Background: SAM (S-adenosyl methionine) riboswitch aptamer: a 116-nucleotide RNA sequence from Arthrobacter sp. Edens01. A search with the family's covariance model found it, with a score of 92 bits. For this family Rfam cites "The aptamer core of SAM-IV riboswitches mimics the ligand-binding site of SAM-I riboswitches" (Weinberg et al., RNA, 2008). The base pairs follow the family's consensus structure, which is taken from published work. Rfam's curators write: SAM-IV is a mRNA element that regulates gene expression via direct sensing of S-adenosylmethionine (SAM or AdoMet). SAM-IV riboswitches share conserved nucleotide positions with the previously described SAM-I riboswitches sequence analysis and molecular recognition experiments suggest that SAM-I and SAM-IV riboswitches share similar ligand binding sites, but have different scaffolds.
RNA sequence: GAUCAUGAGUCCCAACGCGAAGCUCUGGCUGGUUGGGCGGCAACCCUCUCCCGUAGCGGGGUGCCCCAGAUGACGAUCCGGUCGACCGGCAAGACCGCCGGCGGCAAGUACGGCGC
Numbered sequence: 001g002a003u004c005a006u007g008a009g010u011c012c013c014a015a016c017g018c019g020a021a022g023c024u025c026u027g028g029c030u031g032g033u034u035g036g037g038c039g040g041c042a043a044c045c046c047u048c049u050c051c052c053g054u055a056g057c058g059g060g061g062u063g064c065c066c067c068a069g070a071u072g073a074c075g076a077u078c079c080g081g082u083c084g085a086c087c088g089g090c091a092a093g094a095c096c097g098c099c100g101g102c103g104g105c106a107a108g109u110a111c112g113g114c115g116c
Stems, first nucleotide, its partner, number of pairs: 001078004009038001011037006021030002039065003044061003048056002081105004086101005